The family of this 126-nucleotide RNA from Caenorhabditis auriculariae is "Caenorhabditis snoRNA ceN48". The base pairs follow the family's consensus structure, which was predicted with RNAalifold. Rfam 15.1 lists 12 matches to the family in 11 species. The organism belongs to Caenorhabditis, within Eukaryota. Its family is annotated with nucleolus and RNA processing in the Gene Ontology. A search with the family's covariance model found it, with a score of 71 bits. It is annotated as an H/ACA-box small nucleolar RNA. The literature on the family includes a 2007 paper in BMC Mol Biol by Jia et al., "Systematic identification of non-coding RNA 2,2,7-trimethylguanosine cap structures in Caenorhabditis elegans".

RNA sequence: CCGCACACAAGAAAGUCGACGCGUGUUUUGCUGUGACGUGCGUCGUUGAUUGCGUGUGCGAUAGUGACGCCAACGGUAUCACUCCACUGUUUCUGAGCCGCGGAGCAUCGAAGUCUGGCUACAGUC
Numbered sequence: 001c002c003g004c005a006c007a008c009a010a011g012a013a014a015g016u017c018g019a020c021g022c023g024u025g026u027u028u029u030g031c032u033g034u035g036a037c038g039u040g041c042g043u044c045g046u047u048g049a050u051u052g053c054g055u056g057u058g059c060g061a062u063a064g065u066g067a068c069g070c071c072a073a074c075g076g077u078a079u080c081a082c083u084c085c086a087c088u089g090u091u092u093c094u095g096a097g098c099c100g101c102g103g104a105g106c107a108u109c110g111a112a113g114u115c116u117g118g119c120u121a122c123a124g125u126c
Base pairs, nucleotide, nucleotide: 003059004058005057006056007055008054017045018044019043020042021041023039024038025037026036069119070118071117072116077111082105083104084103085102087100089098090097091096
Dot-bracket structure: ..((((((........(((((.((((.........)))).)))))........)))))).........((((....(....((((.(.(((....))).).)))).....)....)))).......